[Rfam]
RNA sequence: AUAUAAGAGAGACUUUAUUUUUUAGAUUCAUUGAGAAUCUAAUGUAUGUAGUCUAUAAUAUGAAUUAGAUACAUUAGAUUCUCAAUGAAUCUAAAAAGUAAAGUUUCUCUUAUAU
Numbered sequence: 001a002u003a004u005a006a007g008a009g010a011g012a013c014u015u016u017a018u019u020u021u022u023u024a025g026a027u028u029c030a031u032u033g034a035g036a037a038u039c040u041a042a043u044g045u046a047u048g049u050a051g052u053c054u055a056u057a058a059u060a061u062g063a064a065u066u067a068g069a070u071a072c073a074u075u076a077g078a079u080u081c082u083c084a085a086u087g088a089a090u091c092u093a094a095a096a097a098g099u100a101a102a103g104u105u106u107c108u109c110u111u112a113u114a115u
Stems, first nucleotide, its partner, number of pairs: 002114006009107005015101011027089018049067004

Rfam assigns this 115-nucleotide RNA from Trifolium medium to the family "MIR2593 microRNA precursor family". A search with the family's covariance model found it, with a score of 97 bits. The source organism's lineage runs through Eukaryota, eudicotyledons, Papilionoideae, Trifolieae and Trifolium. Gene Ontology terms of the family: miRNA-mediated post-transcriptional gene silencing and RISC complex. Rfam 15.1 lists 1,262 matches to the family in 6 species.